[Rfam]
Nucleotides: 112
Stems, first nucleotide, its partner, number of pairs: 002061005007055005013048003018045004024039004068109001070107004075102002082096003086092002
Number, partner (000 for none) and nucleotide at each position: 001000c002061c003060u004059g005058c006057u007055g008054c009053a010052g011051c012000a013048u014047g015046u016000g017000u018045a019044c020043a021042c022000c023000u024039u025038u026037g027036g028000c029000u030000g031000c032000u033000g034000c035000c036027u037026c038025a039024g040000c041000a042021g043020u044019g045018u046015g047014c048013a049000g050000u051011g052010c053009u054008g055007u056000u057006a058005g059004u060003a061002g062000g063000g064000a065000a066000g067000a068109c069000a070107g071106a072105g073104a074000a075102c076101c077000u078000g079000u080000g081000u082096u083095u084094c085000u086092g087091c088000u089000a090000a091087g092086c093000a094084g095083g096082a097000a098000c099000a100000c101076g102075g103000a104073u105072c106071u107070c108000u109068g110000u111000c112000u